[Rfam]
RNA sequence: AUGACUAUGGCGGAAUUGGUAGACGCGAUUAGUUUAGGUCUAAUUUAUUUUUAAUAAUAUGGGUUCAAAUCCCAUUAGUCAUA
Numbered sequence: 001a002u003g004a005c006u007a008u009g010g011c012g013g014a015a016u017u018g019g020u021a022g023a024c025g026c027g028a029u030u031a032g033u034u035u036a037g038g039u040c041u042a043a044u045u046u047a048u049u050u051u052u053a054a055u056a057a058u059a060u061g062g063g064u065u066c067a068a069a070u071c072c073c074a075u076u077a078g079u080c081a082u083a
Stems, first nucleotide, its partner, number of pairs: 001082007010026003028044005059075005
RNA: tRNA